Rfam assigns this 60-nucleotide RNA sequence to the family "cow-rumen-1 RNA". By type it is a small RNA.
RNA sequence: UCACUGGCCUCCGCGUUAAAGUUUGACGGAGUAAGCCCAGCACCGGACAUGACGAAGAGG
Numbered sequence: 001u002c003a004c005u006g007g008c009c010u011c012c013g014c015g016u017u018a019a020a021g022u023u024u025g026a027c028g029g030a031g032u033a034a035g036c037c038c039a040g041c042a043c044c045g046g047a048c049a050u051g052a053c054g055a056a057g058a059g060g
Stems, first nucleotide, its partner, number of pairs: 004040004009031005015022002